[Rfam]
RNA sequence: UACACAAAGCACAUGAUGACGAAACACUGAAACUGAGACCGUAUGAAGUCCAUUCAAUCCAACACUGAGCUUUGUGUC
Numbered sequence: 001u002a003c004a005c006a007a008a009g010c011a012c013a014u015g016a017u018g019a020c021g022a023a024a025c026a027c028u029g030a031a032a033c034u035g036a037g038a039c040c041g042u043a044u045g046a047a048g049u050c051c052a053u054u055c056a057a058u059c060c061a062a063c064a065c066u067g068a069g070c071u072u073u074g075u076g077u078c
Stems, first nucleotide, its partner, number of pairs: 002077009
RNA: Small nucleolar RNA SNORD69
Organism: Oxyruncus cristatus